Shown here is a 90-nucleotide sequence from Flavobacterium amnicola, a member of the family "Flavo-1 RNA".
[Rfam]
RNA sequence: UUUUAGCCCUGAUGGAAGCGACAUCCUUUUAUAGUUCAUUGAGGCACUCGAAAUGAACUAGAAAAGAUACAGCGAACAGCAGGAUUAGCU
Numbered sequence: 001u002u003u004u005a006g007c008c009c010u011g012a013u014g015g016a017a018g019c020g021a022c023a024u025c026c027u028u029u030u031a032u033a034g035u036u037c038a039u040u041g042a043g044g045c046a047c048u049c050g051a052a053a054u055g056a057a058c059u060a061g062a063a064a065a066g067a068u069a070c071a072g073c074g075a076a077c078a079g080c081a082g083g084a085u086u087a088g089c090u
Stems, first nucleotide, its partner, number of pairs: 009082003013078002018073002023068003029063002032060009

It is annotated as a small RNA.